[Rfam]
RNA sequence: AGGAUGAGACUGUUGUGGUGUGUCUGCCUGUCUACACUUGCUGUGCAGACCUUCUGCUCCUGUACAGCAGGCACAGACAGGCAGACAGAUGGCAGCCC
Number, nucleotide and partner (000 for none) at each position: 001a000002g000003g000004a000005u000006g000007a000008g000009a000010c000011u000012g000013u000014u000015g000016u000017g000018g000019u000020g000021u087022g086023u000024c000025u083026g082027c081028c080029u079030g078031u077032c076033u075034a000035c000036a000037c071038u000039u069040g068041c067042u066043g065044u064045g000046c062047a061048g060049a000050c000051c000052u000053u000054c000055u000056g000057c000058u000059c000060c048061u047062g046063u000064a044065c043066a042067g041068c040069a039070g000071g037072c000073a000074c000075a033076g032077a031078c030079a029080g028081g027082c026083a025084g000085a000086c022087a021088g000089a000090u000091g000092g000093c000094a000095g000096c000097c000098c000
The family of this 98-nucleotide sequence from Takifugu rubripes is "mir-214 microRNA precursor family". The organism belongs to Takifugu, within Eukaryota. On this family, see Shao et al., Gene 2008: "Identification of novel chicken microRNAs and analysis of their genomic organization". It is one of the family's seed sequences. Gene Ontology terms of the family: RISC complex and miRNA-mediated post-transcriptional gene silencing.